[Rfam]
RNA sequence: ACAUUAUUCACGCUGAAUUUUUCGAAUGAAAAAGCGGGGGAACCAUCGCGAGCGAUUACCAAUCGUUUCGCAAGGGGUGAAUCCAGGGAUUUGUAACCCUGGUAGGGCAUUCUCUCUAGCCCGAAUCCGACAGCUAACCUCGUAAGCGAACAAAGGAGAGAUU
Numbered sequence: 001a002c003a004u005u006a007u008u009c010a011c012g013c014u015g016a017a018u019u020u021u022u023c024g025a026a027u028g029a030a031a032a033a034g035c036g037g038g039g040g041a042a043c044c045a046u047c048g049c050g051a052g053c054g055a056u057u058a059c060c061a062a063u064c065g066u067u068u069c070g071c072a073a074g075g076g077g078u079g080a081a082u083c084c085a086g087g088g089a090u091u092u093g094u095a096a097c098c099c100u101g102g103u104a105g106g107g108c109a110u111u112c113u114c115u116c117u118a119g120c121c122c123g124a125a126u127c128c129g130a131c132a133g134c135u136a137a138c139c140u141c142g143u144a145a146g147c148g149a150a151c152a153a154a155g156g157a158g159a160g161a162u163u
Stems, first nucleotide, its partner, number of pairs: 011148004018033006034143006044074001075128003083102006105122004
Dot-bracket structure: ..........((((...((((((....))))))((((((....(.............................)(((.....((((((........))))))..((((..........))))...))).........)))))).))))...............
This 163-nucleotide sequence from Paenibacillus endophyticus belongs to the Rfam family "c-di-AMP riboswitch aptamer (ydaO/yuaA leader)".